[Rfam]
Shown here is a 130-nucleotide RNA from Olea europaea, a member of the family "Small nucleolar RNA snoR111". Its family is annotated with RNA processing and nucleolus in the Gene Ontology. The base pairs follow the family's consensus structure, which was predicted with WAR. It scores 92 bits against the family's covariance model. It is annotated as an H/ACA-box small nucleolar RNA. On this family, see Marker et al., Curr Biol 2002: "Experimental RNomics: identification of 140 candidates for small non-messenger RNAs in the plant Arabidopsis thaliana".

RNA sequence: UCGUAAAAAUGAGGGACGAUAAUGAGUUCGUCUUGUCAUAUCAAAGAACAGAAGGUAUAAAGAUGAUGGCGAGAUAUCGUUUCAGUCGUCAUUUCUCCUGAUUGACGAUUCGAUUGUUGCUCGUCCACAC
Numbered sequence: 001u002c003g004u005a006a007a008a009a010u011g012a013g014g015g016a017c018g019a020u021a022a023u024g025a026g027u028u029c030g031u032c033u034u035g036u037c038a039u040a041u042c043a044a045a046g047a048a049c050a051g052a053a054g055g056u057a058u059a060a061a062g063a064u065g066a067u068g069g070c071g072a073g074a075u076a077u078c079g080u081u082u083c084a085g086u087c088g089u090c091a092u093u094u095c096u097c098c099u100g101a102u103u104g105a106c107g108a109u110u111c112g113a114u115u116g117u118u119g120c121u122c123g124u125c126c127a128c129a130c
Stems, first nucleotide, its partner, number of pairs: 007041001009039003013034006068126002070123004076114004085109007093101002